[Rfam]
RNA sequence: UCGAGGAGGAAACAAAAUGAACGAAGUUCAUUUUUGGUAAAUGUUUCCGACGAAUAGCCGCCGCCAUAAGGGAGGUGGGAAUACAUAUU
Numbered sequence: 001u002c003g004a005g006g007a008g009g010a011a012a013c014a015a016a017a018u019g020a021a022c023g024a025a026g027u028u029c030a031u032u033u034u035u036g037g038u039a040a041a042u043g044u045u046u047c048c049g050a051c052g053a054a055u056a057g058c059c060g061c062c063g064c065c066a067u068a069a070g071g072g073a074g075g076u077g078g079g080a081a082u083a084c085a086u087a088u089u
Stems, first nucleotide, its partner, number of pairs: 008048006016032006058078002061075002064071002
Shown here is an 89-nucleotide RNA sequence, a member of the family "GA-cis RNA". The base pairs follow the family's consensus structure, which is taken from published work. Rfam classes the family as a small RNA.